The family of this 76-nucleotide RNA sequence from Drymodes brunneopygia is "Small nucleolar RNA SNORD69". Rfam classes the family as a C/D-box small nucleolar RNA. For this family Rfam cites "RNomics: an experimental approach that identifies 201 candidates for novel, small, non-messenger RNAs in mouse" (Huttenhofer et al., EMBO J, 2001). A search with the family's covariance model found it, with a score of 38 bits. Lineage of the source: Eukaryota > Euteleostomi > Theropoda > Telluraves > Drymodes.
RNA sequence: CAGAGGGAGGAAAUGAAGAUAAAAUGUCUCAGAUUCAAUCUGCAAUCUUAAUCAAGCUCACCCUUUCCUUCCUCUG
Number, nucleotide and partner (000 for none) at each position: 001c076002a075003g074004a073005g072006g071007g070008a069009g068010g067011a000012a000013a000014u000015g000016a000017a000018g000019a000020u000021a000022a000023a000024a000025u000026g000027u000028c000029u000030c000031a000032g000033a000034u000035u000036c000037a000038a000039u000040c000041u000042g000043c000044a000045a000046u000047c000048u000049u000050a000051a000052u000053c000054a000055a000056g000057c000058u000059c000060a000061c000062c000063c000064u000065u000066u000067c010068c009069u008070u007071c006072c005073u004074c003075u002076g001